A member of the RNA family "Mycobacterium smegmatis small RNA 1" from Antrihabitans auranticaus, 301 nucleotides long. Rfam describes the family as follows. Mycobacterium smegmatis small RNA 1 is highly expressed during stationary phase of growth. Ms1 RNA directly interacts with RNA polymerase (RNAP), but in a different way than 6S, which is present in other bacteria. Ms1 does not require the presence of the main sigma factor for RNAP interaction. The base pairs follow the family's consensus structure, which was predicted with CMfinder. It scores 190 bits against the family's covariance model.
RNA sequence: AAGGAAGAACGGAAGGCCAAGGUCGAUCCGGAAGAGAAGGAACGAUCCCCCGACCGUCAUUCCGAGCACGGGCACCAGGCACCCACGCGGAGCGCGCCGCGACAAGGGCAGAAGUGUUGUGGGCCUGCGUAAUUCGAAGAUUCGUUGGCGAGGACCUCGCACAAGUUGCGGGGAUGAACCAGCGGGAUUCGGAUCGACGCCGAGGCCAGUCACACAACCCACCUAGCACGCUUGGUAACCGGGCAGUCCGUGCUAGCGGGCGGCGAAGUCGAUUUAUCGGCAGCGCCGCCCGCUUUUAUUU
Numbered sequence: 001a002a003g004g005a006a007g008a009a010c011g012g013a014a015g016g017c018c019a020a021g022g023u024c025g026a027u028c029c030g031g032a033a034g035a036g037a038a039g040g041a042a043c044g045a046u047c048c049c050c051c052g053a054c055c056g057u058c059a060u061u062c063c064g065a066g067c068a069c070g071g072g073c074a075c076c077a078g079g080c081a082c083c084c085a086c087g088c089g090g091a092g093c094g095c096g097c098c099g100c101g102a103c104a105a106g107g108g109c110a111g112a113a114g115u116g117u118u119g120u121g122g123g124c125c126u127g128c129g130u131a132a133u134u135c136g137a138a139g140a141u142u143c144g145u146u147g148g149c150g151a152g153g154a155c156c157u158c159g160c161a162c163a164a165g166u167u168g169c170g171g172g173g174a175u176g177a178a179c180c181a182g183c184g185g186g187a188u189u190c191g192g193a194u195c196g197a198c199g200c201c202g203a204g205g206c207c208a209g210u211c212a213c214a215c216a217a218c219c220c221a222c223c224u225a226g227c228a229c230g231c232u233u234g235g236u237a238a239c240c241g242g243g244c245a246g247u248c249c250g251u252g253c254u255a256g257c258g259g260g261c262g263g264c265g266a267a268g269u270c271g272a273u274u275u276a277u278c279g280g281c282a283g284c285g286c287c288g289c290c291c292g293c294u295u296u297u298a299u300u301u
Base pairs, nucleotide, nucleotide: 003063004062006060009057010056011055015051016050021047024044025043027041028040029039065254066253067252068251069250070249071248072247075242076241078240079239083235084234085233087231088230089229092227093226096109097108098107116218117217118216119215120214121213122207123206124205125204126203127200128199129198130197132194133193134192135191136190137189141187142186143185145182146181147180148179149176150175155173156172157171158170159169160168161167256293257292258291259290260289261288262287263286264285265284268281269280270279